[Rfam]
RNA sequence: GUAGAGGAGAUGGCACAGGGGACAUGGCUCAGACUUGGGGGGAGGGGCCUCUAGGCCCUCAGACAUGAGUCCUCUUCUUCCUCCCAG
Number, nucleotide and partner (000 for none) at each position: 001g000002u000003a000004g083005a082006g081007g080008a079009g078010a000011u000012g000013g000014c000015a000016c000017a075018g074019g073020g072021g071022a070023c069024a000025u067026g066027g064028c000029u000030c000031a000032g000033a000034c000035u062036u061037g060038g059039g058040g057041g056042g000043a000044g000045g000046g000047g000048c000049c000050u000051c000052u000053a000054g000055g000056c041057c040058c039059u038060c037061a036062g035063a000064c027065a000066u026067g025068a000069g023070u022071c021072c020073u019074c018075u017076u000077c000078u009079u008080c007081c006082u005083c004084c000085c000086a000087g000
This 87-nucleotide RNA from Ictidomys tridecemlineatus belongs to the Rfam family "mir-877 microRNA precursor family". Taxonomically the source falls in Ictidomys (Eukaryota, Chordata, Tetrapoda, Sciuromorpha). For this family Rfam cites "Many novel mammalian microRNA candidates identified by extensive cloning and RAKE analysis" (Berezikov et al., Genome Res, 2006). A search with the family's covariance model found it, with a score of 48 bits. The family's consensus secondary structure was predicted with RNAalifold.